[Rfam]
Rfam assigns this 60-nucleotide RNA sequence to the family "Xanthine riboswitch aptamer (NMT1 RNA)".
The family's consensus secondary structure is taken from published work.
The literature on the family includes a 2020 paper in RNA by Yu and Breaker, "A bacterial riboswitch class senses xanthine and uric acid to regulate genes associated with purine oxidation".

RNA sequence: AGUCUGAGUAGAAGCAGUCAGGAAUCGCCAGACACGCGACUUCGGGUCAUUGCUCAGUCG
Numbered sequence: 001a002g003u004c005u006g007a008g009u010a011g012a013a014g015c016a017g018u019c020a021g022g023a024a025u026c027g028c029c030a031g032a033c034a035c036g037c038g039a040c041u042u043c044g045g046g047u048c049a050u051u052g053c054u055c056a057g058u059c060g
Stems, first nucleotide, its partner, number of pairs: 005056006015045001019046001021043003025039003
It is one of the family's seed sequences.